[Rfam]
RNA: mir-11 microRNA precursor family
RNA sequence: CUGCGUUCUGGGAUUCUUUCUGUGACUUGUGUUGUUUGGGAUCACAUCACAGGCAGAGUUCUAGCGACGCGU
Numbered sequence: 001c002u003g004c005g006u007u008c009u010g011g012g013a014u015u016c017u018u019u020c021u022g023u024g025a026c027u028u029g030u031g032u033u034g035u036u037u038g039g040g041a042u043c044a045c046a047u048c049a050c051a052g053g054c055a056g057a058g059u060u061c062u063a064g065c066g067a068c069g070c071g072u
Base pairs, nucleotide, nucleotide: 004069005068006067008064009063010062011061012060013059014058015057016056020052021051022050023049024048025047029045030044031043